[Rfam]
RNA sequence: UGGAUCAAUAAUGAGUAUUGGUGGAGGUAUCUGAAUCCAUAACUUUGAUUAAGCCCUCAGUGUCACUCUGAGGUCCAU
Numbered sequence: 001u002g003g004a005u006c007a008a009u010a011a012u013g014a015g016u017a018u019u020g021g022u023g024g025a026g027g028u029a030u031c032u033g034a035a036u037c038c039a040u041a042a043c044u045u046u047g048a049u050u051a052a053g054c055c056c057u058c059a060g061u062g063u064c065a066c067u068c069u070g071a072g073g074u075c076c077a078u
Base pairs, nucleotide, nucleotide: 002076003075004074005073006072
The record is a 78-nucleotide sequence from Catagonus wagneri, which matches "Small nucleolar RNA SNORD113/SNORD114 family" in Rfam. The imprinted human domain at 14q32 contains two clusters of tandemly repeated small nucleolar RNAs named 14q(I) and 14q(II) snoRNAs. These two clusters are named SNORD113 and SNORD114 respectively in the HGNC approved gene symbol nomenclature. The snoRNAs found in both clusters are clearly related and are represented here by a single family. These snoRNAs are intron encoded and are processed from the tissue-specific non-coding human MEG8 RNA, which lies downstream of the imprinted genes DLK1 and GTL2. snoRNAs 14q(I) and 14q(II) differ from previously identified C/D box snoRNAs in their expression profiles and lack of complementarity to rRNA and snRNA. Homologues of these snoRNAs are found in the imprinted non-coding mouse transcript Rian, and in the rat non-coding Bsr (brain-specific repetitive) RNA. Its Rfam clan is "SNORD74 clan". Gene Ontology terms of the family: nucleolus and RNA processing. NCBI's taxonomy places the organism under Eukaryota, Chordata, Euteleostomi, Mammalia, Catagonus. A reference for the family is Cavaille et al. (2002), "Identification of tandemly-repeated C/D snoRNA genes at the imprinted human 14q32 domain reminiscent of those at the Prader-Willi/Angelman syndrome region", Hum Mol Genet. By type it is a C/D-box small nucleolar RNA.